[Rfam]
Nucleotides: 080
Base pairs, nucleotide, nucleotide: 003052004051007050008049009048010047011046012045015042016041017068018067019066020065021064027038028037029036030035057075059073060072061071
Number, partner (000 for none) and nucleotide at each position: 001000u002000u003052g004051g005000c006000c007050c008049u009048g010047c011046g012045u013000g014000a015042c016041u017068g018067g019066c020065g021064a022000u023000a024000g025000a026000g027038a028037u029036g030035g031000g032000c033000c034000a035030c036029c037028a038027u039000c040000g041016g042015g043000g044000a045012g046011c047010g048009c049008a050007g051004c052003u053000u054000g055000a056000a057075g058000c059073g060072c061071c062000g063000c064021u065020c066019g067018c068017c069000u070000g071061g072060g073059c074000a075057u076000c077000a078000c079000c080000c
The family of this 80-nucleotide RNA from Rhizobium sp. RU36D is "ZMP/ZTP riboswitch aptamer (pfl RNA motif)". A reference for the family is Trausch et al. (2015), "Metal Ion-Mediated Nucleobase Recognition by the ZTP Riboswitch", Chem Biol. Pairs were carried over by alignment from the consensus structure, which is taken from published work. Lineage of the source: Bacteria > Pseudomonadota > Alphaproteobacteria > Rhizobiaceae > Rhizobium.